The family of this 93-nucleotide RNA sequence from Microcella putealis is "Glycine riboswitch aptamer". The organism belongs to Microcella, within Bacteria. Pairs were carried over by alignment from the consensus structure. The match comes from Rfam's covariance-model search (64 bits).
RNA sequence: UCACAGCGCGCGGAAGAGUCCCCGGCCACGCCGGGGCGCCGAAGGAGCAAGCCUCCCCGCCAAUCUCUCAGGCACCCGUACCGCGCGCCGCAG
Numbered sequence: 001u002c003a004c005a006g007c008g009c010g011c012g013g014a015a016g017a018g019u020c021c022c023c024g025g026c027c028a029c030g031c032c033g034g035g036g037c038g039c040c041g042a043a044g045g046a047g048c049a050a051g052c053c054u055c056c057c058c059g060c061c062a063a064u065c066u067c068u069c070a071g072g073c074a075c076c077c078g079u080a081c082c083g084c085g086c087g088c089c090g091c092a093g
Stems, first nucleotide, its partner, number of pairs: 006088008020036004038073003041069002045067003051060002